Small nucleolar RNA SNORA65: a 127-nucleotide sequence from Cnephaeus nilssonii.

[Rfam]
RNA sequence: CCCGCCACUGCACCUGACCACUUCCCUGUUGGCUGGUGUAUUCCAGUGGUGAGCUAAAACUAAACCCCAGCUUAGGAAACAGGGUUAUUCUUCAUGUGAUGACUCUGUGCGAAAGCAUGGAACAACA
Number, nucleotide and partner (000 for none) at each position: 001c000002c000003c000004g000005c049006c048007a047008c046009u045010g044011c000012a000013c000014c000015u000016g000017a037018c036019c035020a034021c000022u031023u000024c000025c000026c000027u000028g000029u000030u000031g022032g000033c000034u020035g019036g018037u017038g000039u000040a000041u000042u000043c000044c010045a009046g008047u007048g006049g005050u000051g000052a000053g000054c000055u000056a000057a000058a000059a000060c000061u000062a000063a000064a000065c000066c120067c119068c000069a118070g116071c115072u114073u113074a000075g000076g110077a000078a000079a000080c107081a106082g105083g104084g103085u102086u000087a000088u000089u099090c098091u000092u000093c000094a000095u000096g000097u000098g090099a089100u000101g000102a085103c084104u083105c082106u081107g080108u000109g000110c076111g000112a000113a073114a072115g071116c070117a000118u069119g067120g066121a000122a000123c000124a000125a000126c000127a000
A search with the family's covariance model found it, with a score of 93 bits.
For this family Rfam cites "RNomics: an experimental approach that identifies 201 candidates for novel, small, non-messenger RNAs in mouse" (Huttenhofer et al., EMBO J, 2001).
The family's consensus secondary structure was predicted with RNAalifold.